Overview:
Shown here is a 91-nucleotide RNA from Loxodonta africana, a member of the family "Vault RNA". The family's RNA type in Rfam is non-coding RNA gene. From the family's description: This family of RNAs are found as part of the enigmatic vault ribonucleoprotein complex. The complex consists of a major vault protein (MVP), two minor vault proteins (VPARP and TEP1), and several small untranslated RNA molecules. The family has 73 seed sequences and 2,873 matches in Rfam 15.1.
RNA sequence: GGGUCAGCUUUAGCUCUAGCGGUUACUUCGAUCAAAGUCAGAACAACUCUGUCGUGGAGUUCGAGACCCGCGGGCGCUCUCUGACCCUUUU
Numbered sequence: 001g002g003g004u005c006a007g008c009u010u011u012a013g014c015u016c017u018a019g020c021g022g023u024u025a026c027u028u029c030g031a032u033c034a035a036a037g038u039c040a041g042a043a044c045a046a047c048u049c050u051g052u053c054g055u056g057g058a059g060u061u062c063g064a065g066a067c068c069c070g071c072g073g074g075c076g077c078u079c080u081c082u083g084a085c086c087c088u089u090u091u
Stems, first nucleotide, its partner, number of pairs: 002086006013075004019071004027065005